[Rfam]
RNA: ALIL pseudoknot
RNA sequence: GGCUUUCUUCGCGAGGGAGCUCGACCCUCGACCGCCACGCUCGUAACGUUCAUCACGGAACGUCAGGACCAGUUCGGGGUCGAGCCGAUCUCUACGGUGCUGACUGAAUUCGGCGUGCAGAUCGCCCCG
Numbered sequence: 001g002g003c004u005u006u007c008u009u010c011g012c013g014a015g016g017g018a019g020c021u022c023g024a025c026c027c028u029c030g031a032c033c034g035c036c037a038c039g040c041u042c043g044u045a046a047c048g049u050u051c052a053u054c055a056c057g058g059a060a061c062g063u064c065a066g067g068a069c070c071a072g073u074u075c076g077g078g079g080u081c082g083a084g085c086c087g088a089u090c091u092c093u094a095c096g097g098u099g100c101u102g103a104c105u106g107a108a109u110u111c112g113g114c115g116u117g118c119a120g121a122u123c124g125c126c127c128c129g
Base pairs, nucleotide, nucleotide: 013029014028015027016026017025075129076128077127078126079125086124087123089121090120091119093117094116095115